Arthropod 7SK RNA: a 305-nucleotide sequence from Diachasma alloeum. The family has 19 seed sequences and 229 matches in Rfam 15.1. The family is grouped with related families in Rfam's "7SK clan". It is annotated as a non-coding RNA gene. The literature on the family includes a 2008 paper in Mol Biol Evol by Gruber et al., "Arthropod 7SK RNA". A search with the family's covariance model found it, with a score of 146 bits. Pairs were carried over by alignment from the consensus structure, which is taken from published work.
[Rfam]
RNA sequence: GGAAGUGUGUGCUAGUGAUGGCGCAGCUGAACAUUGAUCGCUAACGUUAUAGAUAUAUGGCAGAUCUGCUCAGUGGGUGUUGUCACGUGGUCGCUUCAAGUAGCUUGUGUUCGGCUCCCGAUGCGCAUCCACAACUUCGUGGUGUUUCGGCAUCACGGAUUUGUACCGCCUGCACGGUUGAGUCUUCACGUCGCUCCUCGAACUACCGCGAUUUCCAAAUUGGGGGGCAAUCGAAUAGGUCAGACGAGGUAAUUUGUCGCUUCCAUAUACAGGCACUGCAGAUUCGCAGUAUGCCAUGUUUUUUG
Numbered sequence: 001g002g003a004a005g006u007g008u009g010u011g012c013u014a015g016u017g018a019u020g021g022c023g024c025a026g027c028u029g030a031a032c033a034u035u036g037a038u039c040g041c042u043a044a045c046g047u048u049a050u051a052g053a054u055a056u057a058u059g060g061c062a063g064a065u066c067u068g069c070u071c072a073g074u075g076g077g078u079g080u081u082g083u084c085a086c087g088u089g090g091u092c093g094c095u096u097c098a099a100g101u102a103g104c105u106u107g108u109g110u111u112c113g114g115c116u117c118c119c120g121a122u123g124c125g126c127a128u129c130c131a132c133a134a135c136u137u138c139g140u141g142g143u144g145u146u147u148c149g150g151c152a153u154c155a156c157g158g159a160u161u162u163g164u165a166c167c168g169c170c171u172g173c174a175c176g177g178u179u180g181a182g183u184c185u186u187c188a189c190g191u192c193g194c195u196c197c198u199c200g201a202a203c204u205a206c207c208g209c210g211a212u213u214u215c216c217a218a219a220u221u222g223g224g225g226g227g228c229a230a231u232c233g234a235a236u237a238g239g240u241c242a243g244a245c246g247a248g249g250u251a252a253u254u255u256g257u258c259g260c261u262u263c264c265a266u267a268u269a270c271a272g273g274c275a276c277u278g279c280a281g282a283u284u285c286g287c288a289g290u291a292u293g294c295c296a297u298g299u300u301u302u303u304u305g
Stems, first nucleotide, its partner, number of pairs: 001264007015086005027073003032068002036066004040061004272295003275290005